Notes: The family of this 52-nucleotide sequence from Methylobacterium sp. 4-46 is "serC leader". About the family: This family is a putative regulatory RNA structure that is found upstream of the serC-serA operon in some alpha-proteobacteria. The final stem of the structure overlaps the ribosome binding site of the serC reading frame. NCBI's taxonomy places the organism under Bacteria, Pseudomonadota, Hyphomicrobiales, Methylobacteriaceae, Methylobacterium. The literature on the family includes a 2005 paper in Genome Biol by Corbino et al., "Evidence for a second class of S-adenosylmethionine riboswitches and other regulatory RNA motifs in alpha-proteobacteria".

RNA sequence: CGGCGGGACACCUCUCCCCACCGAGAGGCGCCCAUCUGGAAGGAUGGACACC
Numbered sequence: 001c002g003g004c005g006g007g008a009c010a011c012c013u014c015u016c017c018c019c020a021c022c023g024a025g026a027g028g029c030g031c032c033c034a035u036c037u038g039g040a041a042g043g044a045u046g047g048a049c050a051c052c
Base pairs, nucleotide, nucleotide: 011028012027013026014025015024016023032047033046034045035044036043037042